[Rfam]
RNA sequence: UACUCCCUGACGACGGGAACCGUGCUGGUUUUGACCUCGGUUAUAGCAAAUAUAUGAAAAUAAGCUAUCACCGGUUCAAAACUGGUACGAGUCCCUGAGUCAGUU
Numbered sequence: 001u002a003c004u005c006c007c008u009g010a011c012g013a014c015g016g017g018a019a020c021c022g023u024g025c026u027g028g029u030u031u032u033g034a035c036c037u038c039g040g041u042u043a044u045a046g047c048a049a050a051u052a053u054a055u056g057a058a059a060a061u062a063a064g065c066u067a068u069c070a071c072c073g074g075u076u077c078a079a080a081a082c083u084g085g086u087a088c089g090a091g092u093c094c095c096u097g098a099g100u101c102a103g104u105u
Stems, first nucleotide, its partner, number of pairs: 015095004021089001023087012036074001038073001040071002043068003
A member of the RNA family "mir-36 microRNA precursor family" from Caenorhabditis latens, 105 nucleotides long. Rfam links the family to the GO terms RISC complex and miRNA-mediated post-transcriptional gene silencing. Pairs were carried over by alignment from the consensus structure, which was predicted with WAR. The family has 46 seed sequences and 199 matches in Rfam 15.1. Clan: mir-36 clan.